RNA sequence: CCAAAGGCUCUUUUAAGAGCCACCCACUUAUUCCUUAAAACUGGG
Dot-bracket structure: .....((((((....))))))........................
The family of this 45-nucleotide sequence from Salvator merianae is "Histone 3' UTR stem-loop". About the family: The mRNAs of metazoan histone genes lack a poly-A tail. 3' end processing occurs at a site between a highly conserved stem-loop (modelled by this family) and a purine rich region around 20 nts downstream (the histone downstream element, or HDE). The stem-loop is bound by a 31 kDa stem-loop binding protein (SLBP - also termed the histone hairpin binding protein, or HBP). Together with U7 snRNA binding of the HDE, SLBP binding nucleate s the formation of the processing complex. The histone 3' UTR stem-loop is also involved in nucleocytoplasmic transport of the mRNA, and in stability regulation and translation efficiency in the cytoplasm. By type it is a cis-regulatory element. Its family is annotated with mRNA 3'-end processing by stem-loop binding and cleavage in the Gene Ontology. The source organism's lineage runs through Eukaryota, Metazoa, Tetrapoda, Squamata and Salvator.